Purine riboswitch aptamer: a 102-nucleotide RNA from Salirhabdus euzebyi. From the family's description: Riboswitches are metabolite binding domains within certain messenger RNAs that serve as precision sensors for their corresponding targets. The organism belongs to Salirhabdus, within Bacteria. Its family is annotated with purine nucleobase biosynthetic process in the Gene Ontology.

RNA sequence: UAAAAAGAAUAAAUACACCGUCGUAUAAUUUUGGGGAUAAGGCCCAUGAGUUUCUACCGGACUACCGUAAAUGGUCUGACUACGAGGUGAUUGCAUAUACUU
Numbered sequence: 001u002a003a004a005a006a007g008a009a010u011a012a013a014u015a016c017a018c019c020g021u022c023g024u025a026u027a028a029u030u031u032u033g034g035g036g037a038u039a040a041g042g043c044c045c046a047u048g049a050g051u052u053u054c055u056a057c058c059g060g061a062c063u064a065c066c067g068u069a070a071a072u073g074g075u076c077u078g079a080c081u082a083c084g085a086g087g088u089g090a091u092u093g094c095a096u097a098u099a100c101u102u
Stems, first nucleotide, its partner, number of pairs: 019087001021085005029049002032046004058078007